[Rfam]
RNA sequence: GCGCGCCCCGCAGGAGAGAGUCGGCUUUAGAAGCUGGCCGCCGAAGGCGCAAACUCCCAUAAACGCUCAGGCCAACGUACUGCGGAUUUAGA
Numbered sequence: 001g002c003g004c005g006c007c008c009c010g011c012a013g014g015a016g017a018g019a020g021u022c023g024g025c026u027u028u029a030g031a032a033g034c035u036g037g038c039c040g041c042c043g044a045a046g047g048c049g050c051a052a053a054c055u056c057c058c059a060u061a062a063a064c065g066c067u068c069a070g071g072c073c074a075a076c077g078u079a080c081u082g083c084g085g086a087u088u089u090a091g092a
Stems, first nucleotide, its partner, number of pairs: 008085006020038004040072003043068002047066003053060001
Dot-bracket structure: .......((((((......((((...........)))).(((((..(((...(......)...))))).))).......)))))).......
The family of this 92-nucleotide RNA sequence from Marinomonas pollencensis is "Glycine riboswitch aptamer". Gene Ontology term of the family: glycine biosynthetic process. The match comes from Rfam's covariance-model search (56 bits). From the family's description: This family represents the bacterial glycine riboswitch. The base pairs follow the family's consensus structure.